[Rfam]
RNA sequence: GGGUAUCGACACGGGAGAGACCGGCCAUGCCGGCGCCGAAGGAGCAACCGCCCCGGAAACUCUCAGGCAAAAGGACCGGUCGGUGAUA
Numbered sequence: 001g002g003g004u005a006u007c008g009a010c011a012c013g014g015g016a017g018a019g020a021c022c023g024g025c026c027a028u029g030c031c032g033g034c035g036c037c038g039a040a041g042g043a044g045c046a047a048c049c050g051c052c053c054c055g056g057a058a059a060c061u062c063u064c065a066g067g068c069a070a071a072a073g074g075a076c077c078g079g080u081c082g083g084u085g086a087u088a
Stems, first nucleotide, its partner, number of pairs: 006083005012078003021033004035068003038064002042062003048056002

Rfam assigns this 88-nucleotide RNA sequence from Novacetimonas maltaceti to the family "Glycine riboswitch aptamer". Taxonomically the source falls in Novacetimonas (Bacteria, Pseudomonadati, Alphaproteobacteria, Acetobacteraceae). The pairing is the family consensus, mapped onto this sequence.